[Rfam]
Description
This 93-nucleotide RNA sequence from Oreotrochilus melanogaster belongs to the Rfam family "mir-1388 microRNA precursor family". Its family is annotated with miRNA-mediated post-transcriptional gene silencing and RISC complex in the Gene Ontology. A reference for the family is Soares et al. (2009), "Parallel DNA pyrosequencing unveils new zebrafish microRNAs", BMC Genomics. The match comes from Rfam's covariance-model search (87 bits). The organism belongs to Oreotrochilus, within Eukaryota.

RNA sequence: ACGCGAGGGGCACCUCGGGGGCUGUCUGACCUGAGAAUGGUGACACCUGAGGGUCAAUCUCAGGUCCGUCAGCCCGUGGGAUGCCCACUCCAG
Numbered sequence: 001a002c003g004c005g006a007g008g009g010g011c012a013c014c015u016c017g018g019g020g021g022c023u024g025u026c027u028g029a030c031c032u033g034a035g036a037a038u039g040g041u042g043a044c045a046c047c048u049g050a051g052g053g054u055c056a057a058u059c060u061c062a063g064g065u066c067c068g069u070c071a072g073c074c075c076g077u078g079g080g081a082u083g084c085c086c087a088c089u090c091c092a093g
Stems, first nucleotide, its partner, number of pairs: 005090003008086005014080003019075002022072003026068001028066009038056002